[Rfam]
RNA: Small nucleolar RNA snR84
RNA sequence: AUUGCACAACUUAAGUUUGUCGAGGAUCAUUUUUUUUGAACUGAAUCAUGCUCUUUUUAAGUGCUUUGAAACCCUCGAUGAAUGUGUCAAUGUGCAAAGAUAAACUAUUGUUCUCUGUUGAUCAGUGACUUAAUGUUUGCUUUGGAGAAUGAUAUUUUCCCUUUCCUAUAUUUGACUUUUGUUCUAAAAGUUAUUUGGAAAGAAAAGGCAUGAUUGAGGUUGCGACUUUUUCGUUUUUGCUUUUGCAUGGAUAAUUCAUCCAUGCACAUCUCACUUUAUUGGACCUUCAAGAUUGGUUUCCCAUGUAAUUUAAUUUUCUUCCUCUACAUUUAAUAUGUUCUAUAUUAAUACCAAUUGAGUUGUGCGUACUUCAUUGCAGAUAUUUUACCAGACCUGUCUGAGUUUUUCGUUCAAGUUUGGUUGAAAUCGGCUUGAGGUAUAUGAACAUGGUUGGGAUAUGGAGAUUGGGAGAUCAAAGAAGCGAAAAUACCUGAGACAGUUUUUUUAAAAAAGAAGCUACAGGAACAUGACUC
Numbered sequence: 001a002u003u004g005c006a007c008a009a010c011u012u013a014a015g016u017u018u019g020u021c022g023a024g025g026a027u028c029a030u031u032u033u034u035u036u037u038g039a040a041c042u043g044a045a046u047c048a049u050g051c052u053c054u055u056u057u058u059a060a061g062u063g064c065u066u067u068g069a070a071a072c073c074c075u076c077g078a079u080g081a082a083u084g085u086g087u088c089a090a091u092g093u094g095c096a097a098a099g100a101u102a103a104a105c106u107a108u109u110g111u112u113c114u115c116u117g118u119u120g121a122u123c124a125g126u127g128a129c130u131u132a133a134u135g136u137u138u139g140c141u142u143u144g145g146a147g148a149a150u151g152a153u154a155u156u157u158u159c160c161c162u163u164u165c166c167u168a169u170a171u172u173u174g175a176c177u178u179u180u181g182u183u184c185u186a187a188a189a190g191u192u193a194u195u196u197g198g199a200a201a202g203a204a205a206a207g208g209c210a211u212g213a214u215u216g217a218g219g220u221u222g223c224g225a226c227u228u229u230u231u232c233g234u235u236u237u238u239g240c241u242u243u244u245g246c247a248u249g250g251a252u253a254a255u256u257c258a259u260c261c262a263u264g265c266a267c268a269u270c271u272c273a274c275u276u277u278a279u280u281g282g283a284c285c286u287u288c289a290a291g292a293u294u295g296g297u298u299u300c301c302c303a304u305g306u307a308a309u310u311u312a313a314u315u316u317u318c319u320u321c322c323u324c325u326a327c328a329u330u331u332a333a334u335a336u337g338u339u340c341u342a343u344a345u346u347a348a349u350a351c352c353a354a355u356u357g358a359g360u361u362g363u364g365c366g367u368a369c370u371u372c373a374u375u376g377c378a379g380a381u382a383u384u385u386u387a388c389c390a391g392a393c394c395u396g397u398c399u400g401a402g403u404u405u406u407u408c409g410u411u412c413a414a415g416u417u418u419g420g421u422u423g424a425a426a427u428c429g430g431c432u433u434g435a436g437g438u439a440u441a442u443g444a445a446c447a448u449g450g451u452u453g454g455g456a457u458a459u460g461g462a463g464a465u466u467g468g469g470a471g472a473u474c475a476a477a478g479a480a481g482c483g484a485a486a487a488u489a490c491c492u493g494a495g496a497c498a499g500u501u502u503u504u505u506u507a508a509a510a511a512a513g514a515a516g517c518u519a520c521a522g523g524a525a526c527a528u529g530a531c532u533c
Stems, first nucleotide, its partner, number of pairs: 015083003020078006027044003031040003046069002050064002053061002125223001128220004132215003138210005144160007161202006173193009234487011245265008294475009316464001322463004331347007349456001351454007359446003366440008376431002379428002384425004388420006395413002399409004498518006